[Rfam]
RNA sequence: UCGCCUGUUUUGGCACUAGCACAUUUUUGCUUUGUUUCUCGUUGUUGGGGCAAUUAUGUGUGGUGCCAAUUUAGGACA
Numbered sequence: 001u002c003g004c005c006u007g008u009u010u011u012g013g014c015a016c017u018a019g020c021a022c023a024u025u026u027u028u029g030c031u032u033u034g035u036u037u038c039u040c041g042u043u044g045u046u047g048g049g050g051c052a053a054u055u056a057u058g059u060g061u062g063g064u065g066c067c068a069a070u071u072u073a074g075g076a077c078a
Base pairs, nucleotide, nucleotide: 004075005074006073007072010069011068012067013066014065015064016063017062019061020060021059022058023057024056027053028052029051030050031049032048
RNA: mir-96 microRNA precursor family